This 60-nucleotide RNA from Senegalia massiliensis belongs to the Rfam family "GP20-b RNA".
It scores 40 bits against the family's covariance model.
Taxonomically the source falls in Senegalia (Bacteria, Bacillati, Eubacteriales, Clostridiaceae).
The base pairs follow the family's consensus structure, which is taken from published work.
[Rfam]
RNA sequence: UGCUUACUAUUGGCGUAACUAAUAGAAAUCAAGUGAAAGCAACUCACGUAAAUAAGCGUA
Numbered sequence: 001u002g003c004u005u006a007c008u009a010u011u012g013g014c015g016u017a018a019c020u021a022a023u024a025g026a027a028a029u030c031a032a033g034u035g036a037a038a039g040c041a042a043c044u045c046a047c048g049u050a051a052a053u054a055a056g057c058g059u060a
Stems, first nucleotide, its partner, number of pairs: 001015004007025005033047003